[Rfam]
RNA sequence: UCUCACGCUGUGACUCUCCAAAGGGAAGCACUUUCUGUUGUCUGAAGGAAAAUAACACACUUCCCUUUAGAGUGUUACCAUUUGAGA
Numbered sequence: 001u002c003u004c005a006c007g008c009u010g011u012g013a014c015u016c017u018c019c020a021a022a023g024g025g026a027a028g029c030a031c032u033u034u035c036u037g038u039u040g041u042c043u044g045a046a047g048g049a050a051a052a053u054a055a056c057a058c059a060c061u062u063c064c065c066u067u068u069a070g071a072g073u074g075u076u077a078c079c080a081u082u083u084g085a086g087a
Stems, first nucleotide, its partner, number of pairs: 001087005007081001010078005016072003020068009033055002038052002